[Rfam]
RNA sequence: GCUCGCGUCCUAGGGGAGUAGUCCCCCGCAAGCUCUGCUAAACAGCGAGUUUGCCCGGCGCUCGUCAACAUACUUGGUCAACAGACCAUGGCGAGUGCGACCCAGGCCCAAGCGGCCAGCGGUUUGACAAGACCUAUGACACGCACACCUUACCCGGGGCGGGAAGGCUGUACGUGUCAUAGCCGUUUUGACCCGCC
Numbered sequence: 001g002c003u004c005g006c007g008u009c010c011u012a013g014g015g016g017a018g019u020a021g022u023c024c025c026c027c028g029c030a031a032g033c034u035c036u037g038c039u040a041a042a043c044a045g046c047g048a049g050u051u052u053g054c055c056c057g058g059c060g061c062u063c064g065u066c067a068a069c070a071u072a073c074u075u076g077g078u079c080a081a082c083a084g085a086c087c088a089u090g091g092c093g094a095g096u097g098c099g100a101c102c103c104a105g106g107c108c109c110a111a112g113c114g115g116c117c118a119g120c121g122g123u124u125u126g127a128c129a130a131g132a133c134c135u136a137u138g139a140c141a142c143g144c145a146c147a148c149c150u151u152a153c154c155c156g157g158g159g160c161g162g163g164a165a166g167g168c169u170g171u172a173c174g175u176g177u178c179a180u181a182g183c184c185g186u187u188u189u190g191a192c193c194c195g196c197c
Stems, first nucleotide, its partner, number of pairs: 026057001028055001058098010075088005105197003
Dot-bracket structure: .........................(.(..........................).)((((((((((.......(((((....)))))))))))))))......(((.......................................................................................)))
Rfam assigns this 197-nucleotide RNA from Pseudomonas sp. M30-35 to the family "Manganese Mn2+ riboswitch aptamer (yybP-ykoY)". Lineage of the source: Bacteria > Pseudomonadati > Pseudomonadota > Pseudomonadales > Pseudomonas. From the family's description: This RNA was originally discovered in E. coli during a large scale screen and was named SraF. The family was later found to exist upstream of related families of protein genes in many bacteria, including the the yybP and ykoK genes in B. subtilis. The specific functions of these proteins are unknown, but this structured RNA element may be involved in their genetic regulation as a riboswitch. A search with the family's covariance model found it, with a score of 48 bits. For this family Rfam cites "New RNA motifs suggest an expanded scope for riboswitches in bacterial genetic control" (Barrick et al., Proc Natl Acad Sci U S A, 2004). Gene Ontology term of the family: manganese ion binding.